[Rfam]
RNA sequence: AUAUGUGGGCGACCUUCCUCCUCCCGGGUUCUUCGCUCACGAGAUCAGCGCCACUCCUCCUCCCGGGCUGCUGAUCGGUUCUUUCGGAAAGCCUGCCGCACCUCCUCCCGCGGCGGGCUUUUUCG
Number, nucleotide and partner (000 for none) at each position: 001a000002u000003a000004u000005g000006u000007g038008g037009g036010c000011g034012a029013c028014c000015u000016u000017c000018c000019u000020c000021c000022u000023c000024c000025c000026g000027g000028g013029u012030u000031c000032u000033u000034c011035g000036c009037u008038c007039a000040c000041g000042a000043g076044a075045u074046c073047a072048g071049c070050g068051c067052c066053a000054c000055u000056c000057c000058u000059c000060c000061u000062c000063c000064c000065g000066g052067g051068c050069u000070g049071c048072u047073g046074a045075u044076c043077g000078g000079u000080u000081c000082u000083u000084u000085c000086g000087g000088a000089a120090a119091g118092c117093c116094u115095g114096c113097c112098g111099c110100a000101c000102c000103u000104c000105c000106u000107c000108c000109c000110g099111c098112g097113g096114c095115g094116g093117g092118c091119u090120u089121u000122u000123u000124c000125g000
Annotation:
The family of this 125-nucleotide RNA from Sinorhizobium medicae is "Alphaproteobacterial ar14". Taxonomically the source falls in Sinorhizobium medicae (Bacteria, Pseudomonadota, Alphaproteobacteria, Hyphomicrobiales). The base pairs follow the family's consensus structure. Rfam links the family to the GO term biological process involved in symbiotic interaction. From the family's description: Smr14C2 was renamed NfeR1 (Nodule Formation Efficiency RNA) highly expressed in salt stress and during the symbiotic interaction on legume roots. Rfam 15.1 lists 784 matches to the family in 332 species. By type it is a small RNA.